[Rfam]
RNA sequence: CAAUUGAGAUAUCCGAAACCUCAUAUAAUAGUGGGAAUAUGGCCCACGAGUUUCUACCCGAUGACCGUAAAUCAUUGGACUAUGAGGAGAGUACAAUUACUA
Dot-bracket structure: ..................(((((((...(.(((((.......))))).)........(((((((.......)))))))..)))))))...............

This 102-nucleotide sequence from Priestia megaterium belongs to the Rfam family "Purine riboswitch aptamer". Rfam links the family to the GO term purine nucleobase biosynthetic process. On this family, see Mandal et al., Cell 2003: "Riboswitches Control Fundamental Biochemical Pathways in Bacillus subtilis and Other Bacteria". The source organism's lineage runs through Bacteria, Bacillati, Bacillota, Caryophanales and Priestia megaterium. Riboswitches are metabolite binding domains within certain messenger RNAs that serve as precision sensors for their corresponding targets. Allosteric rearrangement of mRNA structure is mediated by ligand binding, and this results in modulation of gene expression. A class of riboswitches that selectively recognises guanine and becomes saturated at concentrations as low as 5 nM. In Bacillus subtilis, this mRNA motif is located on at least five separate transcriptional units that together encode 17 genes that are mostly involved in purine transport and purine nucleotide biosynthesis.